Small nucleolar RNA Z122: a 90-nucleotide RNA sequence from Salvia splendens.
The literature on the family includes a 2003 paper in Nucleic Acids Res by Chen et al., "The high diversity of snoRNAs in plants: identification and comparative study of 120 snoRNA genes from Oryza sativa".
The organism belongs to core Calosphace, within Eukaryota.
Nucleotides: 090
Base pairs, nucleotide, nucleotide: 003088004087005086006085007084
Number, partner (000 for none) and nucleotide at each position: 001000u002000u003088u004087g005086g006085g007084a008000a009000a010000u011000g012000a013000u014000g015000c016000g017000a018000a019000a020000c021000g022000a023000u024000a025000u026000a027000u028000c029000g030000c031000u032000a033000u034000u035000u036000u037000c038000a039000g040000a041000g042000g043000c044000u045000u046000u047000g048000c049000u050000c051000u052000g053000c054000u055000g056000a057000a058000u059000g060000u061000a062000u063000c064000a065000u066000a067000u068000u069000u070000g071000c072000a073000c074000g075000u076000c077000a078000g079000u080000c081000u082000g083000a084007u085006c086005c087004c088003a089000u090000u